RNA sequence: AUCCUCACGCCAUGCGUUGCUGACAGUCGUCAGCGGCAUGCCCUGGCAGUCUCGGUCUUCAAGACUGCAGCGCGGUUCGCCGUGCUGACCGAUCCAGUCCGCUUCGCAUCGCCUACCGCGGACGUUCGUCGGCCUGGCGACGAUGC
Numbered sequence: 001a002u003c004c005u006c007a008c009g010c011c012a013u014g015c016g017u018u019g020c021u022g023a024c025a026g027u028c029g030u031c032a033g034c035g036g037c038a039u040g041c042c043c044u045g046g047c048a049g050u051c052u053c054g055g056u057c058u059u060c061a062a063g064a065c066u067g068c069a070g071c072g073c074g075g076u077u078c079g080c081c082g083u084g085c086u087g088a089c090c091g092a093u094c095c096a097g098u099c100c101g102c103u104u105c106g107c108a109u110c111g112c113c114u115a116c117c118g119c120g121g122a123c124g125u126u127c128g129u130c131g132g133c134c135u136g137g138c139g140a141c142g143a144u145g146c
Base pairs, nucleotide, nucleotide: 011040012039013038014037019034020033021032022031023030024029046068047067048066049065050064051063054090055089056088057087069086070085071084072083073082074081075080126143127142128141129140130139131138
radC RNA: a 146-nucleotide RNA sequence from Immundisolibacter cernigliae. A search with the family's covariance model found it, with a score of 118 bits. Lineage of the source: Bacteria > Pseudomonadota > Immundisolibacterales > Immundisolibacteraceae > Immundisolibacter.